[Rfam]
RNA: SAM riboswitch aptamer (S box leader)
RNA sequence: CUCUUAUCGAGAGAAGGUGGAGGGACAGGCCCUGUGAAGCCCAGCAACCAUCCCCGGCGGGAAAGGUGCCAACCUGGCAAAGUCCACAAGCGCUUUGCAGGAUAAGAG
Numbered sequence: 001c002u003c004u005u006a007u008c009g010a011g012a013g014a015a016g017g018u019g020g021a022g023g024g025a026c027a028g029g030c031c032c033u034g035u036g037a038a039g040c041c042c043a044g045c046a047a048c049c050a051u052c053c054c055c056g057g058c059g060g061g062a063a064a065g066g067u068g069c070c071a072a073c074c075u076g077g078c079a080a081a082g083u084c085c086a087c088a089a090g091c092g093c094u095u096u097g098c099a100g101g102a103u104a105a106g107a108g
Base pairs, nucleotide, nucleotide: 001108002107003106004105005104006103007102008101013042016041017040018039022032023031024030026077028075029074044069045068046067048066049065051062052061053060054059073100078097079096080095081094082093083092